[Rfam]
RNA sequence: UGGGCUGGCCGUAGUGCCAAGGUCCAACCAACUCGGCGGGGAGACUCCCC
Numbered sequence: 001u002g003g004g005c006u007g008g009c010c011g012u013a014g015u016g017c018c019a020a021g022g023u024c025c026a027a028c029c030a031a032c033u034c035g036g037c038g039g040g041g042a043g044a045c046u047c048c049c050c
Stems, first nucleotide, its partner, number of pairs: 001026006007018003
RNA: DUF3800-XI RNA